[Rfam]
RNA sequence: CCAAAGGCUCUUUUCAGAGCCACUCACCUUUUCACAAUUGGAGCUAU
Numbered sequence: 001c002c003a004a005a006g007g008c009u010c011u012u013u014u015c016a017g018a019g020c021c022a023c024u025c026a027c028c029u030u031u032u033c034a035c036a037a038u039u040g041g042a043g044c045u046a047u
Stems, first nucleotide, its partner, number of pairs: 006021006
This 47-nucleotide RNA sequence from Pan troglodytes belongs to the Rfam family "Histone 3' UTR stem-loop". By type it is a cis-regulatory element. On this family, see Williams and Marzluff, Nucleic Acids Res 1995: "The sequence of the stem and flanking sequences at the 3' end of histone mRNA are critical determinants for the binding of the stem-loop binding protein". NCBI's taxonomy places the organism under Eukaryota, Euteleostomi, Boreoeutheria, Homininae, Pan. It scores 35 bits against the family's covariance model.